This 102-nucleotide sequence from Tepidimicrobium xylanilyticum belongs to the Rfam family "SAM riboswitch aptamer (S box leader)".
[Rfam]
RNA sequence: CUCUUAUCAAGAGUGGUGGAGGGAUCUGGCCCAGUGAAACCCGGCAACCUGUGUACACAAGGUGCUAAAUCCAGCGGUAUGUGUUAUACCGAAAGAUAAGAA
Numbered sequence: 001c002u003c004u005u006a007u008c009a010a011g012a013g014u015g016g017u018g019g020a021g022g023g024a025u026c027u028g029g030c031c032c033a034g035u036g037a038a039a040c041c042c043g044g045c046a047a048c049c050u051g052u053g054u055a056c057a058c059a060a061g062g063u064g065c066u067a068a069a070u071c072c073a074g075c076g077g078u079a080u081g082u083g084u085u086a087u088a089c090c091g092a093a094a095g096a097u098a099a100g101a102a
Base pairs, nucleotide, nucleotide: 002101003100004099005098006097007096008095013042015041016040017039021032022031023030026074027073028072029071043066044065045064046063048062049061050059051058052057070094075091076090077089078088079087080086
NCBI's taxonomy places the organism under Bacteria, Bacillota, Tissierellia, Tepidimicrobiaceae, Tepidimicrobium.